[Rfam]
A member of the RNA family "Small nucleolar RNA R66" from Setaria viridis, 73 nucleotides long. It is annotated as a C/D-box small nucleolar RNA. The base pairs follow the family's consensus structure, which was predicted with PFOLD. About the family: snoR66 is a C/D box small nucleolar RNA, which acts as a methylation guide for 18S ribosomal RNA in plants. snoR66 has been alternatively named snoZ269 in rice.
RNA sequence: UCCUAUGAUGGCAUGGCAUCUUUGAGACCUGAUCAUUCUUAUGAUGUCAACCAUAAGCAUAUCUUCUGAGGAC
Numbered sequence: 001u002c003c004u005a006u007g008a009u010g011g012c013a014u015g016g017c018a019u020c021u022u023u024g025a026g027a028c029c030u031g032a033u034c035a036u037u038c039u040u041a042u043g044a045u046g047u048c049a050a051c052c053a054u055a056a057g058c059a060u061a062u063c064u065u066c067u068g069a070g071g072a073c
Stems, first nucleotide, its partner, number of pairs: 001072003032042002